[Rfam]
RNA sequence: GCUCAGUGUGGUGGAUGGGGUGGUGCUGCCCUCCCAGCUUCACCGCUGCUGACCCUAGGCAGGUUGCUCAACACUUGAGCCCUGGUUUCCCCUCCUUACAGUGUAGAUAGGAUUCCUGCCUCUGACCAGCUUUGAGGACCAGCU
Number, nucleotide and partner (000 for none) at each position: 001g000002c059003u058004c000005a056006g055007u000008g053009u052010g000011g000012u000013g000014g000015a000016u000017g000018g031019g030020g029021u028022g000023g000024u000025g000026c000027u000028g021029c020030c019031c018032u000033c000034c000035c000036a000037g000038c000039u000040u000041c000042a000043c000044c000045g000046c000047u000048g000049c000050u000051g000052a009053c008054c000055c006056u005057a000058g003059g002060c000061a000062g000063g000064u000065u000066g000067c000068u000069c129070a000071a104072c103073a102074c101075u100076u098077g097078a096079g095080c000081c000082c000083u000084g000085g000086u000087u000088u000089c000090c000091c000092c000093u000094c000095c079096u078097u077098a076099c000100a075101g074102u073103g072104u071105a000106g000107a000108u000109a123110g122111g121112a000113u000114u000115c000116c000117u000118g000119c000120c000121u111122c110123u109124g000125a000126c000127c000128a000129g069130c000131u000132u000133u000134g000135a000136g000137g000138a000139c000140c000141a000142g000143c000144u000